[Rfam]
RNA sequence: UGUUAAAUCAGGAAUUGUAAACAAUUCCUAGCCAAUGUGUUUAAUUUUUGUAAGUCAUUCCUAGAAAUUGUUUGCAAUGCCUGUAACA
Numbered sequence: 001u002g003u004u005a006a007a008u009c010a011g012g013a014a015u016u017g018u019a020a021a022c023a024a025u026u027c028c029u030a031g032c033c034a035a036u037g038u039g040u041u042u043a044a045u046u047u048u049u050g051u052a053a054g055u056c057a058u059u060c061c062u063a064g065a066a067a068u069u070g071u072u073u074g075c076a077a078u079g080c081c082u083g084u085a086a087c088a
Stems, first nucleotide, its partner, number of pairs: 009083004014078005020072007028064004040052001042050001
mir-384 microRNA precursor family: an 88-nucleotide RNA sequence from Phyllostomus discolor. Pairs were carried over by alignment from the consensus structure, which was predicted with RNAalifold. A search with the family's covariance model found it, with a score of 100 bits. The family has 8 seed sequences and 108 matches in Rfam 15.1.